[Rfam]
RNA sequence: UAAUGCCAGGAUCAAAUGGUUUAAGCCCACAUGAGCUUACUCAUAAGUGGGUAAAAGACCUUGAGACCCGCCCCAAUAUGAGCAAAAAAGUGGGAUAAUUCCCACGAUAUGCGAAUAUUGGGUAGGAUUGUGGGAGUGCGUAGCACUAAACAAUCCGUAGGCUUCA
Numbered sequence: 001u002a003a004u005g006c007c008a009g010g011a012u013c014a015a016a017u018g019g020u021u022u023a024a025g026c027c028c029a030c031a032u033g034a035g036c037u038u039a040c041u042c043a044u045a046a047g048u049g050g051g052u053a054a055a056a057g058a059c060c061u062u063g064a065g066a067c068c069c070g071c072c073c074c075a076a077u078a079u080g081a082g083c084a085a086a087a088a089a090g091u092g093g094g095a096u097a098a099u100u101c102c103c104a105c106g107a108u109a110u111g112c113g114a115a116u117a118u119u120g121g122g123u124a125g126g127a128u129u130g131u132g133g134g135a136g137u138g139c140g141u142a143g144c145a146c147u148a149a150a151c152a153a154u155c156c157g158u159a160g161g162c163u164u165c166a
Stems, first nucleotide, its partner, number of pairs: 001166001003164001005162003010068001012066002016062001018060004022055001025052006031044005072122008082112003090105006125156007136146004
Dot-bracket structure: (.(.(((..(.((..(.(((((..(((((((((((....)))))..))))))..).)))).)..)).)...((((((((..(((.....((((((....))))))....)))..))))))))..(((((((....((((...))))...)))))))...))).).)

A member of the RNA family "Clostridiales-1 RNA" from Eubacterium sp. CAG:156, 166 nucleotides long. It scores 119 bits against the family's covariance model. Pairs were carried over by alignment from the consensus structure, which is taken from published work. The family's RNA type in Rfam is small RNA. The organism belongs to Eubacterium, within Bacteria.